[Rfam]
RNA: Bacterial small signal recognition particle RNA
Organism: Pasteurellaceae bacterium RH1A
RNA sequence: UUUCUGGUUCCUCGCAAUGGUCUUCAGUUUAUUUGGUCAGGUUCGGAAGAAAGCAGCCAGAAUUGAAAGCACCGUGUGCCGAGGUUUGGCUGGGAAUG
Numbered sequence: 001u002u003u004c005u006g007g008u009u010c011c012u013c014g015c016a017a018u019g020g021u022c023u024u025c026a027g028u029u030u031a032u033u034u035g036g037u038c039a040g041g042u043u044c045g046g047a048a049g050a051a052a053g054c055a056g057c058c059a060g061a062a063u064u065g066a067a068a069g070c071a072c073c074g075u076g077u078g079c080c081g082a083g084g085u086u087u088g089g090c091u092g093g094g095a096a097u098g
Stems, first nucleotide, its partner, number of pairs: 004093005010084005015076001017075005023067007033060005042051003